Rfam assigns this 36-nucleotide RNA from Geotrypetes seraphini to the family "Iron response element I". It is annotated as a cis-regulatory element. Rfam links the family to the GO term response to iron ion. Pairs were carried over by alignment from the consensus structure, which is taken from published work.
RNA sequence: UUGAGUUUUGUUUCAACAGUGUUUGAACAGACUUGG
Numbered sequence: 001u002u003g004a005g006u007u008u009u010g011u012u013u014c015a016a017c018a019g020u021g022u023u024u025g026a027a028c029a030g031a032c033u034u035g036g
Stems, first nucleotide, its partner, number of pairs: 001036008010028001012027005017021001